[Rfam]
RNA: Z30 small nucleolar RNA
Organism: Gadus morhua
RNA sequence: CUGCGGUGAUGAUGCGAUCUCCCUGACCUGGUAUUGGGGGCCCCGGGGCCCGCUCUGACCGGUGUAUGACGUCUGAAUCUUCUCUCUGAGCAG
Numbered sequence: 001c002u003g004c005g006g007u008g009a010u011g012a013u014g015c016g017a018u019c020u021c022c023c024u025g026a027c028c029u030g031g032u033a034u035u036g037g038g039g040g041c042c043c044c045g046g047g048g049c050c051c052g053c054u055c056u057g058a059c060c061g062g063u064g065u066a067u068g069a070c071g072u073c074u075g076a077a078u079c080u081u082c083u084c085u086c087u088g089a090g091c092a093g
Base pairs, nucleotide, nucleotide: 003091004090036053038051039050